Shown here is a 58-nucleotide sequence from Polysphondylium violaceum, a member of the family "Class I RNA from Dictyostelium". The organism belongs to Polysphondylium, within Eukaryota. Rfam describes the family as follows. Dictyostelium Class I RNA was first reported for Aspegren et al. 2004 in Dictyostelium discoideum. Sucgang et al. 2011 identify putative homologs of Class I RNA in D. discoideum and D. purpureum. On this family, see Aspegren et al., Nucleic Acids Res 2004: "Novel non-coding RNAs in Dictyostelium discoideum and their expression during development". Pairs were carried over by alignment from the consensus structure, which is taken from published work. It is annotated as a non-coding RNA gene.
Nucleotides: 058
Stems, first nucleotide, its partner, number of pairs: 001056006
Number, partner (000 for none) and nucleotide at each position: 001056g002055u003054u004053c005052c006051c007000c008000u009000u010000a011000c012000a013000g014000c015000a016000a017000u018000u019000a020000a021000c022000a023000u024000u025000c026000u027000c028000u029000c030000u031000a032000c033000u034000a035000c036000a037000a038000a039000a040000a041000g042000a043000a044000a045000a046000c047000c048000c049000u050000c051006g052005g053004g054003a055002a056001c057000u058000g